Shown here is a 72-nucleotide RNA from Methylomagnum ishizawai, a member of the family "int-alpA RNA". From the family's description: Acidobacteria (1 example), Planctomycetes (1 example), Proteobacteria. By type it is a small RNA. The source organism's lineage runs through Bacteria, Pseudomonadati, Gammaproteobacteria, Methylococcales and Methylomagnum. A search with the family's covariance model found it, with a score of 49 bits.
RNA sequence: ACCACGCCUAGCGAGUCGCGACGCGAAAACCGGAUUCCCCCUUUCCGGCCCGGCGUGGUUCCCUUUCAAGGG
Numbered sequence: 001a002c003c004a005c006g007c008c009u010a011g012c013g014a015g016u017c018g019c020g021a022c023g024c025g026a027a028a029a030c031c032g033g034a035u036u037c038c039c040c041c042u043u044u045c046c047g048g049c050c051c052g053g054c055g056u057g058g059u060u061c062c063c064u065u066u067c068a069a070g071g072g
Stems, first nucleotide, its partner, number of pairs: 001059008011024003030048005038072003042068001